[Rfam]
RNA sequence: AUAAAAAAGGAGCAAUACCAAACUUCUUGCUAGAACAAGAAAUUGAUUAUUGCUCCUUUAU
Numbered sequence: 001a002u003a004a005a006a007a008a009g010g011a012g013c014a015a016u017a018c019c020a021a022a023c024u025u026c027u028u029g030c031u032a033g034a035a036c037a038a039g040a041a042a043u044u045g046a047u048u049a050u051u052g053c054u055c056c057u058u059u060a061u
Base pairs, nucleotide, nucleotide: 006059007058008057009056010055011054012053013052014051015050016049017048021044022043024041025040026039027038028037029036
RNA: Plastid-psbA-4 3UTR RNA